Notes:
The record is an 80-nucleotide RNA from Danionella cerebrum, which matches "mir-92 microRNA precursor family" in Rfam. This family represents the microRNA precursor mir-92. Human miR-92 has two predicted hairpin precursor sequences: mir-92-1 on chromosome 13 and mir-92-2 on chromosome X. miR-92 has also been cloned from mouse embryonic stem cells. A search with the family's covariance model found it, with a score of 83 bits. For this family Rfam cites "miRNPs: a novel class of ribonucleoproteins containing numerous microRNAs" (Mourelatos et al., Genes Dev, 2002). Rfam links the family to the GO terms RISC complex and miRNA-mediated post-transcriptional gene silencing. The family has 23 seed sequences and 1,347 matches in Rfam 15.1. The base pairs follow the family's consensus structure, which was predicted with PFOLD. NCBI's taxonomy places the organism under Eukaryota, Craniata, Gnathostomata, Actinopteri, Danionella.
RNA sequence: CUUUCUGCACAGGUUGGGAUUGGUUGCAAUGCUAUGCAUCUAUAAAAGGUAUUGCACUUGUCCCGGCCUGUGAAGAACUG
Numbered sequence: 001c002u003u004u005c006u007g008c009a010c011a012g013g014u015u016g017g018g019a020u021u022g023g024u025u026g027c028a029a030u031g032c033u034a035u036g037c038a039u040c041u042a043u044a045a046a047a048g049g050u051a052u053u054g055c056a057c058u059u060g061u062c063c064c065g066g067c068c069u070g071u072g073a074a075g076a077a078c079u080g
Stems, first nucleotide, its partner, number of pairs: 004076003009071006016064005022058003026055008